[Rfam]
RNA sequence: GGCGACGGAUGCCGUGAGGCCUCUGUCCGCUCAGUGGCCCUGGUGCACCUUCCCCGGCACCAGGUUCGCAGCGGGCGGGCGGGGACCUGACGGCAUCCACGACGGUGG
Numbered sequence: 001g002g003c004g005a006c007g008g009a010u011g012c013c014g015u016g017a018g019g020c021c022u023c024u025g026u027c028c029g030c031u032c033a034g035u036g037g038c039c040c041u042g043g044u045g046c047a048c049c050u051u052c053c054c055c056g057g058c059a060c061c062a063g064g065u066u067c068g069c070a071g072c073g074g075g076c077g078g079g080c081g082g083g084g085a086c087c088u089g090a091c092g093g094c095a096u097c098c099a100c101g102a103c104g105g106u107g108g
Base pairs, nucleotide, nucleotide: 010095011094012093013092014091015090018087019086021084022083023082024081025080026079027078028077029076030075031074032073034069035068036067037066039064040063041062042061043060044059045058046057
Shown here is a 108-nucleotide RNA sequence from Amycolatopsis endophytica, a member of the family "mraW RNA". Taxonomically the source falls in Amycolatopsis (Bacteria, Bacillati, Pseudonocardiales, Pseudonocardiaceae). The match comes from Rfam's covariance-model search (64 bits).